[Rfam]
The family of this 120-nucleotide RNA from Nitratireductor sp. StC3 is "Rhizobiales sRNA Atu_C8". A reference for the family is Wilms et al. (2012), "Deep sequencing uncovers numerous small RNAs on all four replicons of the plant pathogen Agrobacterium tumefaciens", RNA Biol. The source organism's lineage runs through Bacteria, Pseudomonadota, Hyphomicrobiales, Phyllobacteriaceae and Nitratireductor.

RNA sequence: CAUGAACACACGGAUCAUUCUCGUAGUAGGAACGCGCAUGGGCAAGGCGGUGUAACCGUCGGGCAAAAGCACCCAUGCGCGAUCGUCAGGCUCCUUCGGGGGCCUUUUUUAUUGUCAGGA
Dot-bracket structure: ........(................)..((.(((((((((((...(((((.....)))))..((....)).))))))))))......(((((((....))))))).......).))....